[Rfam]
RNA sequence: AGGGGAAGACUUAGAGCCCCUCGGAUUGCUGUGUUAAUAGCAAUGCCUUUGGCCGGGCAUGGCGGUUAGUGAAUC
Numbered sequence: 001a002g003g004g005g006a007a008g009a010c011u012u013a014g015a016g017c018c019c020c021u022c023g024g025a026u027u028g029c030u031g032u033g034u035u036a037a038u039a040g041c042a043a044u045g046c047c048u049u050u051g052g053c054c055g056g057g058c059a060u061g062g063c064g065g066u067u068a069g070u071g072a073a074u075c
Stems, first nucleotide, its partner, number of pairs: 001021005034069005040063002043060006
Rfam assigns this 75-nucleotide RNA from Prevotella sp. P5-92 to the family "L13-Bacteroidia ribosomal protein leader". Pairs were carried over by alignment from the consensus structure, which is taken from published work. A search with the family's covariance model found it, with a score of 71 bits.